[Rfam]
RNA: Fluoride riboswitch aptamer (crcB RNA motif)
RNA sequence: CCCGGUGAAGGCGAUGGAGCUCGCCGACAACCGCACCCGCUGCUGAUGGCUCCUACCGAUCC
Numbered sequence: 001c002c003c004g005g006u007g008a009a010g011g012c013g014a015u016g017g018a019g020c021u022c023g024c025c026g027a028c029a030a031c032c033g034c035a036c037c038c039g040c041u042g043c044u045g046a047u048g049g050c051u052c053c054u055a056c057c058g059a060u061c062c
Base pairs, nucleotide, nucleotide: 010025011024012023013022016053017052018051019050020049021048033043034042035041